[Rfam]
The record is a 105-nucleotide RNA sequence from Clostridium tetanomorphum, which matches "pemK RNA" in Rfam. The match comes from Rfam's covariance-model search (36 bits). Rfam classes the family as a cis-regulatory element. Lineage of the source: Bacteria > Bacillati > Bacillota > Clostridia > Clostridium.

RNA sequence: AUAAUGAUACUUCCGCAUAGCCACAGACUCACGCAAUGGGUGCGGCAGCCGGAUAUCCCGGCUGUUGUCCGCCGCAUUUUCAGAGAGCAUCUCAACGGCAAAGGG
Numbered sequence: 001a002u003a004a005u006g007a008u009a010c011u012u013c014c015g016c017a018u019a020g021c022c023a024c025a026g027a028c029u030c031a032c033g034c035a036a037u038g039g040g041u042g043c044g045g046c047a048g049c050c051g052g053a054u055a056u057c058c059c060g061g062c063u064g065u066u067g068u069c070c071g072c073c074g075c076a077u078u079u080u081c082a083g084a085g086a087g088c089a090u091c092u093c094a095a096c097g098g099c100a101a102a103g104g105g
Stems, first nucleotide, its partner, number of pairs: 012102001013045006046064003050060003065101005